[Rfam]
RNA sequence: UCCUUGGUAGACCACUAGCGAGGUAUAGAGUUCCUACGUAUUUUUUUUAGUGUAGGAACUUCAUACCGUGCUCUUGGAUUUACCGAC
Numbered sequence: 001u002c003c004u005u006g007g008u009a010g011a012c013c014a015c016u017a018g019c020g021a022g023g024u025a026u027a028g029a030g031u032u033c034c035u036a037c038g039u040a041u042u043u044u045u046u047u048u049a050g051u052g053u054a055g056g057a058a059c060u061u062c063a064u065a066c067c068g069u070g071c072u073c074u075u076g077g078a079u080u081u082a083c084c085g086a087c
Base pairs, nucleotide, nucleotide: 012077013076014075017072018071019070020069022067023066024065025064026063028061029060030059031058032057033056034055035054036053037052
This 87-nucleotide RNA sequence from Asbolus verrucosus belongs to the Rfam family "mir-276 microRNA precursor family". The literature on the family includes a 2009 paper in BMC Genomics by Li et al., "Direct sequencing and expression analysis of a large number of miRNAs in Aedes aegypti and a multi-species survey of novel mosquito miRNAs". The family's consensus secondary structure was predicted with RNAalifold. The source organism's lineage runs through Eukaryota, Aparaglossata, Coleoptera, Pimeliinae and Asbolus. Gene Ontology terms of the family: miRNA-mediated post-transcriptional gene silencing and RISC complex.